[Rfam]
RNA sequence: GGCGAUAAACACGACUCGGCAUAAGCGUUGCGGACCCGGGGGCAGUGCCCGGCGCCUCCACCAUCCUUCCCCGGCUUGUCGGCCGGUCUGGCAAGGGGGCGAAACAGGCUCGACGCGCGUGGUAAAGGGGUCGCUUUUGCCCGGCAUUGUACCGCCGUUAUCGGGCUAAAACCUAAGUGCGAACGACAACAGCCGCGAGGCUGUCGCACUCGCUGCCUAA
Numbered sequence: 001g002g003c004g005a006u007a008a009a010c011a012c013g014a015c016u017c018g019g020c021a022u023a024a025g026c027g028u029u030g031c032g033g034a035c036c037c038g039g040g041g042g043c044a045g046u047g048c049c050c051g052g053c054g055c056c057u058c059c060a061c062c063a064u065c066c067u068u069c070c071c072c073g074g075c076u077u078g079u080c081g082g083c084c085g086g087u088c089u090g091g092c093a094a095g096g097g098g099g100c101g102a103a104a105c106a107g108g109c110u111c112g113a114c115g116c117g118c119g120u121g122g123u124a125a126a127g128g129g130g131u132c133g134c135u136u137u138u139g140c141c142c143g144g145c146a147u148u149g150u151a152c153c154g155c156c157g158u159u160a161u162c163g164g165g166c167u168a169a170a171a172c173c174u175a176a177g178u179g180c181g182a183a184c185g186a187c188a189a190c191a192g193c194c195g196c197g198a199g200g201c202u203g204u205c206g207c208a209c210u211c212g213c214u215g216c217c218u219a220a
Base pairs, nucleotide, nucleotide: 001141002140003139004138005137014131015130016129017128026119027118028117030116031115032114036052037051038050039049040048053101054100055099056098057097058096059095142157143156144155145154